[Rfam]
RNA sequence: CAGCCAUGCAGUGAGCACAUAGCGAACUAUCCUUUCACCUUUUACUAAAGAAUACCGUGUGCGAGCUGCAAUUAGUGGCAUACACCAAUUUUUUGAGUGACUCUCUUCUUUAGAGGAC
Numbered sequence: 001c002a003g004c005c006a007u008g009c010a011g012u013g014a015g016c017a018c019a020u021a022g023c024g025a026a027c028u029a030u031c032c033u034u035u036c037a038c039c040u041u042u043u044a045c046u047a048a049a050g051a052a053u054a055c056c057g058u059g060u061g062c063g064a065g066c067u068g069c070a071a072u073u074a075g076u077g078g079c080a081u082a083c084a085c086c087a088a089u090u091u092u093u094u095g096a097g098u099g100a101c102u103c104u105c106u107u108c109u110u111u112a113g114a115g116g117a118c
Stems, first nucleotide, its partner, number of pairs: 003079004009068004015062005028054003032050004097118001101115004

U5 spliceosomal RNA: a 118-nucleotide sequence from Solanum commersonii. The match comes from Rfam's covariance-model search (77 bits). Taxonomically the source falls in Solanum (Eukaryota, Streptophytina, Tracheophyta, eudicotyledons). The literature on the family includes a 1997 paper in Nucleic Acids Res by Zwieb, "The uRNA database".